[Rfam]
RNA sequence: AAUGAUGGUAGAGGUGCGGUCAUUAAUAGUAACUAGUUUGAGGAAAGUGGAUUCCAAUGACAACUAGUGAAAGGAAUGAUUGCCGAAGUGAUAAAAGCUCCAUUACUUUUAUCGCUGGUUUUACAUUUAAGAGAUGUAAAAUUGUCAAGAAACACUAUGUUCUUGGAGAGCUAUCUCAUUG
Numbered sequence: 001a002a003u004g005a006u007g008g009u010a011g012a013g014g015u016g017c018g019g020u021c022a023u024u025a026a027u028a029g030u031a032a033c034u035a036g037u038u039u040g041a042g043g044a045a046a047g048u049g050g051a052u053u054c055c056a057a058u059g060a061c062a063a064c065u066a067g068u069g070a071a072a073g074g075a076a077u078g079a080u081u082g083c084c085g086a087a088g089u090g091a092u093a094a095a096a097g098c099u100c101c102a103u104u105a106c107u108u109u110u111a112u113c114g115c116u117g118g119u120u121u122u123a124c125a126u127u128u129a130a131g132a133g134a135u136g137u138a139a140a141a142u143u144g145u146c147a148a149g150a151a152a153c154a155c156u157a158u159g160u161u162c163u164u165g166g167a168g169a170g171c172u173a174u175c176u177c178a179u180u181g
Stems, first nucleotide, its partner, number of pairs: 007175005016083009032068007087116011117143011145166007
Dot-bracket structure: ......(((((....(((((((((.......(((((((.......................)))))))......)))))))))...(((((((((((........)))))))))))(((((((((((.....))))))))))).(((((((........)))))))....)))))......
Background
Shown here is a 181-nucleotide RNA, a member of the family "Lysine riboswitch aptamer". Rfam's curators write: Riboswitches are metabolite binding domains within certain messenger RNAs that serve as precision sensors for their corresponding targets. Allosteric rearrangement of mRNA structure is mediated by ligand binding, and this results in modulation of gene expression. This family includes riboswitches that sense lysine in a number of genes involved in lysine metabolism, including lysC. A search with the family's covariance model found it, with a score of 142 bits.